c-di-GMP-I riboswitch aptamer: a 91-nucleotide sequence from Sporomusaceae bacterium FL31. About the family: GEMM was predicted in a large-scale screen for bacterial structured RNA regulatory elements. Rfam links the family to the GO term cyclic-di-GMP binding. The base pairs follow the family's consensus structure, which is taken from published work. The organism belongs to Sporomusaceae, within Bacteria. It scores 63 bits against the family's covariance model.
RNA sequence: AGUAUAAGGUGGCAAACCUUCUGAAAAGAAGCGACGCAAAGCUAUGGGUCUAAGGAUGGUUGUUUCCGUCUAUGAUUGCCUGGUUGCAUGU
Numbered sequence: 001a002g003u004a005u006a007a008g009g010u011g012g013c014a015a016a017c018c019u020u021c022u023g024a025a026a027a028g029a030a031g032c033g034a035c036g037c038a039a040a041g042c043u044a045u046g047g048g049u050c051u052a053a054g055g056a057u058g059g060u061u062g063u064u065u066c067c068g069u070c071u072a073u074g075a076u077u078g079c080c081u082g083g084u085u086g087c088a089u090g091u
Stems, first nucleotide, its partner, number of pairs: 012037002018031005040085004046080002048076003055070004
Dot-bracket structure: ...........((....(((((....)))))....))..((((..(((((....((((........))))...)))..)).))))......